Shown here is a 135-nucleotide RNA sequence from Ornithorhynchus anatinus, a member of the family "Small nucleolar RNA SNORA49". The organism belongs to Ornithorhynchus, within Eukaryota. Rfam 15.1 lists 722 matches to the family in 550 species. From the family's description: The snoRNA ACA49 has no identified RNA target. NB genomic sequence 1-nt different from published. It is one of the family's seed sequences. Gene Ontology terms of the family: nucleolus and RNA processing.
RNA sequence: CUUCCUCAGCCUUACUCCAGGGGCUUUCUUGCUCAUAGAGUGCCCUGGCAUUGCCUGAGGAUAAAUCAAAAAGCCCAUAUCCCUCCCCAGUAGGAGCCUGAUUUUCCUUUGGGGCCUACAGUUUGGGCUGACACA
Numbered sequence: 001c002u003u004c005c006u007c008a009g010c011c012u013u014a015c016u017c018c019a020g021g022g023g024c025u026u027u028c029u030u031g032c033u034c035a036u037a038g039a040g041u042g043c044c045c046u047g048g049c050a051u052u053g054c055c056u057g058a059g060g061a062u063a064a065a066u067c068a069a070a071a072a073g074c075c076c077a078u079a080u081c082c083c084u085c086c087c088c089a090g091u092a093g094g095a096g097c098c099u100g101a102u103u104u105u106c107c108u109u110u111g112g113g114g115c116c117u118a119c120a121g122u123u124u125g126g127g128c129u130g131a132c133a134c135a
Stems, first nucleotide, its partner, number of pairs: 003061007011053001017048006023041005072129003076125002085114006092108004